Description
The record is an 82-nucleotide RNA sequence from Echinostoma caproni, which matches "tRNA" in Rfam.

[Rfam]
RNA sequence: GGCCUCGUAGCUCAGCUGGUACAGCAUGCGCGUACAAAGCGUAGGCGGCGUCCAUUCGUGGGUUCGAAUCCCACCGAGGCUA
Numbered sequence: 001g002g003c004c005u006c007g008u009a010g011c012u013c014a015g016c017u018g019g020u021a022c023a024g025c026a027u028g029c030g031c032g033u034a035c036a037a038a039g040c041g042u043a044g045g046c047g048g049c050g051u052c053c054a055u056u057c058g059u060g061g062g063u064u065c066g067a068a069u070c071c072c073a074c075c076g077a078g079g080c081u082a
Stems, first nucleotide, its partner, number of pairs: 001081007010025003027043005058074005
Lineage of the source: Eukaryota > Rhabditophora > Echinostomata > Echinostomatoidea > Echinostoma. The base pairs follow the family's consensus structure, which is taken from published work.